[Rfam]
Nucleotides: 162
Base pairs, nucleotide, nucleotide: 012121013120014119015118016048017047018046019045020044021043023042024041025040026039027038049089050088051087052086056082057081058080060078062076063075093114094112095111096110098108099107135161136160137159138158141156143154144153145152146151
Number, partner (000 for none) and nucleotide at each position: 001000g002000u003000a004000c005000u006000u007000a008000c009000c010000u011000g012121g013120c014119a015118g016048g017047g018046g019045a020044g021043a022000u023042a024041c025040c026039a027038u028000g029000g030000u031000c032000a033000c034000a035000a036000a037000g038027g039026u040025g041024g042023u043021u044020u045019u046018u047017c048016u049089a050088g051087g052086g053000c054000a055000a056082g057081g058080c059000u060078u061000u062076u063075c064000c065000a066000u067000u068000g069000a070000c071000u072000c073000c074000a075063g076062a077000u078060g079000u080058g081057c082056u083000g084000a085000c086052c087051c088050u089049u090000g091000c092000u093114a094112u095111u096110u097000c098108c099107c100000c101000u102000a103000a104000u105000g106000u107099g108098g109000g110096a111095a112094a113000c114093u115000c116000u117000a118015c119014u120013g121012u122000a123000u124000a125000a126000u127000u128000u129000g130000u131000g132000g133000u134000g135161a136160g137159g138158g139000a140000c141156a142000c143154u144153g145152u146151g147000u148000u149000u150000g151146u152145a153144c154143g155000u156141u157000c158138c159137c160136c161135u162000a
The record is a 162-nucleotide RNA from Felis catus, which matches "U1 spliceosomal RNA" in Rfam. A search with the family's covariance model found it, with a score of 103 bits. From the family's description: U1 is a small nuclear RNA (snRNA) component of the spliceosome (involved in pre-mRNA splicing). Its 5' end forms complementary base pairs with the 5' splice junction, thus defining the 5' donor site of an intron. There are significant differences in sequence and secondary structure between metazoan and yeast U1 snRNAs, the latter being much longer (568 nucleotides as compared to 164 nucleotides in human). Nevertheless, secondary structure predictions suggest that all U1 snRNAs share a 'common core' consisting of helices I, II, the proximal region of III, and IV. This family does not contain the larger yeast sequences. The base pairs follow the family's consensus structure, which is taken from published work. Its Rfam clan is "U1 clan".